[Rfam]
RNA sequence: CAUUAAUUUGUUUCAAUCUUUCCUGUUAUGAUUAAAGCAAAUUAAUCCCCCAACUAGAUUUCUUGCUGAGCUUGACUCCGAGGUAUCUAGUUUUUUU
Number, nucleotide and partner (000 for none) at each position: 001c000002a046003u045004u044005a043006a042007u041008u040009u039010g038011u037012u036013u035014c000015a033016a032017u031018c030019u000020u000021u000022c000023c000024u000025g000026u000027u000028a000029u000030g018031a017032u016033u015034a000035a013036a012037g011038c010039a009040a008041a007042u006043u005044a004045a003046u002047c000048c000049c000050c000051c000052a092053a091054c090055u089056a088057g087058a086059u085060u000061u083062c082063u081064u080065g079066c000067u000068g078069a077070g076071c000072u000073u000074g000075a000076c070077u069078c068079c065080g064081a063082g062083g061084u000085a059086u058087c057088u056089a055090g054091u053092u052093u000094u000095u000096u000097u000
The record is a 97-nucleotide sequence from Lactococcus fujiensis, which matches "23S methyl RNA motif" in Rfam. By type it is a cis-regulatory element. Gene Ontology term of the family: regulation of gene expression. On this family, see Weinberg et al., Nucleic Acids Res 2007: "Identification of 22 candidate structured RNAs in bacteria using the CMfinder comparative genomics pipeline".